Record summary:
A member of the RNA family "L31-Actinobacteria ribosomal protein leader" from Streptomonospora alba, 62 nucleotides long.
Nucleotides: 062
Base pairs, nucleotide, nucleotide: 003062004061005060007057008056009055010054015052016051017050020047021046022045023044
Number, partner (000 for none) and nucleotide at each position: 001000g002000c003062g004061g005060u006000a007057c008056c009055g010054g011000u012000u013000c014000a015052c016051g017050c018000c019000a020047u021046c022045g023044g024000a025000a026000c027000g028000g029000c030000a031000g032000c033000c034000c035000a036000g037000c038000g039000c040000c041000u042000u043000g044023c045022c046021g047020a048000g049000u050017g051016c052015g053000c054010c055009c056008g057007g058000c059000g060005a061004c062003c
It scores 37 bits against the family's covariance model. The family's consensus secondary structure is taken from published work.